[Rfam]
Background: A member of the RNA family "Twister_sister_ribozyme" from Gemmiger sp. An194, 85 nucleotides long. The family's consensus secondary structure is taken from published work. A search with the family's covariance model found it, with a score of 76 bits.
Nucleotides: 085
Base pairs, nucleotide, nucleotide: 004080005079006078007077013070014069015068018029019028020027032048033047034046035045049067050066051065052064053063054062
Number, partner (000 for none) and nucleotide at each position: 001000c002000u003000g004080a005079c006078c007077c008000g009000c010000a011000a012000g013070g014069c015068c016000g017000a018029c019028g020027c021000a022000u023000a024000a025000a026000c027020g028019c029018g030000c031000c032048g033047c034046c035045g036000g037000u038000g039000c040000a041000a042000g043000c044000c045035c046034g047033g048032c049067c050066c051065c052064g053063c054062c055000c056000c057000a058000u059000c060000a061000a062054g063053g064052c065051g066050g067049g068015g069014g070013u071000g072000c073000u074000c075000a076000u077007g078006g079005g080004u081000u082000g083000c084000g085000u